[Rfam]
RNA sequence: UCCCAAUGAGGAAGAAAACCCAUGGAUAGGAAGUGCCGUAUGACACUUUAAACCAACAACGGCAAC
Numbered sequence: 001u002c003c004c005a006a007u008g009a010g011g012a013a014g015a016a017a018a019c020c021c022a023u024g025g026a027u028a029g030g031a032a033g034u035g036c037c038g039u040a041u042g043a044c045a046c047u048u049u050a051a052a053c054c055a056a057c058a059a060c061g062g063c064a065a066c
Base pairs, nucleotide, nucleotide: 014060030049031048032047033046034045035044
The record is a 66-nucleotide RNA from Gossypium schwendimanii, which matches "Small nucleolar RNA U49" in Rfam. The literature on the family includes a 2001 paper in RNA by Brown et al., "Multiple snoRNA gene clusters from Arabidopsis". Clan: SNORD49 clan. Rfam 15.1 lists 340 matches to the family in 152 species. It scores 64 bits against the family's covariance model.